[Rfam]
RNA sequence: GCUGUUGUAGGGUAGGAGGAGAGAGCUGCUACCUCACAAGCUGCCACCUCACCCAUCCUCUCCUCUGCAGAAGC
Numbered sequence: 001g002c003u004g005u006u007g008u009a010g011g012g013u014a015g016g017a018g019g020a021g022a023g024a025g026c027u028g029c030u031a032c033c034u035c036a037c038a039a040g041c042u043g044c045c046a047c048c049u050c051a052c053c054c055a056u057c058c059u060c061u062c063c064u065c066u067g068c069a070g071a072a073g074c
Base pairs, nucleotide, nucleotide: 001074002073003072005070006069007068008067009066010065011063012062014059015058016057017056018054019053021052023050024049025048027046028045030043031042033040034039
mir-1759 microRNA precursor family: a 74-nucleotide sequence from Chaetops frenatus.
The organism belongs to Chaetops, within Eukaryota.
A search with the family's covariance model found it, with a score of 78 bits.
The base pairs follow the family's consensus structure, which was predicted with RNAalifold.